[Rfam]
RNA sequence: AUACUUACAUGGGUGGGGUUCGUGGGUGAUCAAGGAGACUCAUGACCUAAGUUGGUAGCCUUCAUUACACAUUGGGGGGGGGGGAGGUGCCAGUCUAACAUCCCCUUAUAAUGGGAGAUCGUACGUCAUAAUUUGUGGUUGUGGUUGUGGGGGCCUGCGUUCGCGCGGCCUCUGC
Numbered sequence: 001a002u003a004c005u006u007a008c009a010u011g012g013g014u015g016g017g018g019u020u021c022g023u024g025g026g027u028g029a030u031c032a033a034g035g036a037g038a039c040u041c042a043u044g045a046c047c048u049a050a051g052u053u054g055g056u057a058g059c060c061u062u063c064a065u066u067a068c069a070c071a072u073u074g075g076g077g078g079g080g081g082g083g084g085a086g087g088u089g090c091c092a093g094u095c096u097a098a099c100a101u102c103c104c105c106u107u108a109u110a111a112u113g114g115g116a117g118a119u120c121g122u123a124c125g126u127c128a129u130a131a132u133u134u135g136u137g138g139u140u141g142u143g144g145u146u147g148u149g150g151g152g153g154c155c156u157g158c159g160u161u162c163g164c165g166c167g168g169c170c171u172c173u174g175c
Stems, first nucleotide, its partner, number of pairs: 012127004016048005023042005049096001051094001053093001055090003060086002062083002098122002101118001103115001105114002148174005156167004
Dot-bracket structure: ...........(((((((((..(((((..........))))).)))))(.(.(.(((..((((..................)).)).)))..)).).((.(.(.((......)))..)..)).))))....................(((((...((((....))))..))))).
RNA: U1 spliceosomal RNA
Organism: Carnegiea gigantea